[Rfam]
RNA sequence: AUCGCCUGGGGGUCUCGUUAAAAAGCAGAAUCUGAUUCAGCAGGUAUAGGGCAGGGCCCCAGAUGCUGCAUUUCUAACAAACUCCCAGGUGAUGCCAA
Dot-bracket structure: ..(((...(((...(.(((((((.((((..(((...........................)))..)))).))).)))).)..)))...))).......
Numbered sequence: 001a002u003c004g005c006c007u008g009g010g011g012g013u014c015u016c017g018u019u020a021a022a023a024a025g026c027a028g029a030a031u032c033u034g035a036u037u038c039a040g041c042a043g044g045u046a047u048a049g050g051g052c053a054g055g056g057c058c059c060c061a062g063a064u065g066c067u068g069c070a071u072u073u074c075u076a077a078c079a080a081a082c083u084c085c086c087a088g089g090u091g092a093u094g095c096c097a098a
Stems, first nucleotide, its partner, number of pairs: 003091003009085003015080001017078004021073003025069004031063003
Background: Rfam assigns this 98-nucleotide sequence from Equus caballus to the family "mir-544 microRNA precursor family". For this family Rfam cites "Mammalian microRNAs: experimental evaluation of novel and previously annotated genes" (Chiang et al., Genes Dev, 2010). The family has 16 seed sequences and 10,750 matches in Rfam 15.1. NCBI's taxonomy places the organism under Eukaryota, Bilateria, Deuterostomia, Mammalia, Equus. The base pairs follow the family's consensus structure, which was predicted with RNAalifold.